The family of this 274-nucleotide RNA from Nannospalax galili is "Mason-Pfizer monkey virus packaging signal". About the family: This family represents a group of sequences that are related to the Mason-Pfizer monkey virus (MPMV) packaging signal. The packaging signal is located in the 5' UTR and is required for specific RNA encapsidation. The literature on the family includes a 1995 paper in J Virol by Harrison et al., "Secondary structure model of the Mason-Pfizer monkey virus 5' leader sequence: identification of a structural motif common to a variety of retroviruses".
[Rfam]
RNA sequence: UGGCGCCCAACGUGGGGCUGGAUACGGAGAAUCCAGUGAGGGAAAAAGACAUCCCCCAAAAAACGUUCCACAACAAUUUUCACUCUGGACUCGCCACGGGAACCUGCCUUGGCUACAACCAAAAGUAAGUACAGACGUCUGAUUAUGGGACAAGAAAUAAGCAGGCAUAAACUUUAUGUUAGGCAAUUACAAGAAGCCUUGAAGACGCGAGGAAUAAAGGUUAAAAUAGAGGAGCUAUUAAGAUUCUUUGAAUUUAUUAAGGAAACCUGUCCUU
Number, nucleotide and partner (000 for none) at each position: 001u000002g000003g000004c000005g000006c029007c000008c027009a000010a000011c000012g025013u024014g023015g000016g000017g000018c000019u000020g000021g000022a000023u014024a013025c012026g000027g008028a000029g006030a000031a000032u000033c000034c000035a000036g050037u049038g000039a000040g000041g000042g000043a000044a000045a000046a000047a000048g000049a037050c036051a000052u000053c000054c000055c000056c000057c000058a000059a000060a000061a000062a000063a000064c000065g000066u000067u000068c000069c000070a000071c000072a000073a000074c000075a000076a000077u000078u000079u000080u000081c000082a126083c125084u124085c000086u121087g000088g000089a000090c000091u117092c000093g000094c000095c111096a110097c000098g108099g107100g000101a000102a000103c000104c000105u000106g000107c099108c098109u000110u096111g095112g000113c000114u000115a000116c000117a091118a000119c000120c000121a086122a000123a000124a084125g083126u082127a000128a000129g000130u000131a000132c000133a000134g151135a000136c000137g000138u149139c148140u147141g146142a000143u000144u000145a000146u141147g140148g139149g138150a000151c134152a000153a000154g000155a000156a000157a000158u201159a200160a199161g197162c196163a000164g000165g000166c000167a000168u000169a000170a000171a000172c000173u000174u000175u000176a000177u000178g000179u000180u000181a000182g000183g000184c000185a000186a000187u000188u000189a000190c000191a000192a000193g000194a000195a000196g162197c161198c000199u160200u159201g158202a000203a000204g000205a000206c000207g000208c250209g249210a248211g247212g246213a245214a244215u243216a000217a000218a236219g235220g000221u233222u232223a000224a000225a000226a000227u000228a000229g000230a000231g000232g222233a221234g000235c219236u218237a000238u000239u000240a000241a000242g000243a215244u214245u213246c212247u211248u210249u209250g208251a000252a000253u000254u000255u000256a000257u000258u000259a274260a273261g272262g271263a270264a000265a000266c000267c000268u000269g000270u263271c262272c261273u260274u259